[Rfam]
The record is a 71-nucleotide sequence from Pseudomonas guineae, which matches "narK RNA" in Rfam. It is annotated as a cis-regulatory element. A search with the family's covariance model found it, with a score of 66 bits.

RNA sequence: GGCGCAGCUCUUGCUAAGAACCACGCACAAGUAGCCAAUGACGGCUGCCCGAGAAACGACAAAGACGUCGC
Numbered sequence: 001g002g003c004g005c006a007g008c009u010c011u012u013g014c015u016a017a018g019a020a021c022c023a024c025g026c027a028c029a030a031g032u033a034g035c036c037a038a039u040g041a042c043g044g045c046u047g048c049c050c051g052a053g054a055a056a057c058g059a060c061a062a063a064g065a066c067g068u069c070g071c
Base pairs, nucleotide, nucleotide: 031048032047033046034045035044036043